[Rfam]
RNA sequence: GAUGGAGAACUCCAAAGGGAUCGCAUUGAUCUCUCUCUUCUCUCUCUUUCUCUCUCUCUCUCAGUUGAUAGCGUAAUGAGAUCAUGCCAUUCCUUUGGAAUUAUCCGU
Numbered sequence: 001g002a003u004g005g006a007g008a009a010c011u012c013c014a015a016a017g018g019g020a021u022c023g024c025a026u027u028g029a030u031c032u033c034u035c036u037c038u039u040c041u042c043u044c045u046c047u048u049u050c051u052c053u054c055u056c057u058c059u060c061u062c063a064g065u066u067g068a069u070a071g072c073g074u075a076a077u078g079a080g081a082u083c084a085u086g087c088c089a090u091u092c093c094u095u096u097g098g099a100a101u102u103a104u105c106c107g108u
Stems, first nucleotide, its partner, number of pairs: 002108005008102002011099011023087004028083005036076001
A member of the RNA family "mir-393 microRNA precursor family" from Cocos nucifera, 108 nucleotides long.
NCBI's taxonomy places the organism under Eukaryota, Tracheophyta, Mesangiospermae, Petrosaviidae, Cocos.
The family has 27 seed sequences and 1,052 matches in Rfam 15.1.